[Rfam]
RNA: MIR398 microRNA precursor family
RNA sequence: GCUGAACCCAGAGGAGUGGCACUGAGAACACAGGCACCAACAAUGUAUGGCGAGCUACUGCAGAAUGGAGUUAAUUCUGUAACUGUGUUCUCAGGUCACCCCUUUGGGAUUGCU
Numbered sequence: 001g002c003u004g005a006a007c008c009c010a011g012a013g014g015a016g017u018g019g020c021a022c023u024g025a026g027a028a029c030a031c032a033g034g035c036a037c038c039a040a041c042a043a044u045g046u047a048u049g050g051c052g053a054g055c056u057a058c059u060g061c062a063g064a065a066u067g068g069a070g071u072u073a074a075u076u077c078u079g080u081a082a083c084u085g086u087g088u089u090c091u092c093a094g095g096u097c098a099c100c101c102c103u104u105u106g107g108g109a110u111u112g113c114u
Base pairs, nucleotide, nucleotide: 007108008107011104012103013102014101016099017098018097019096024092025091026090027089028088029087030086031085032084033083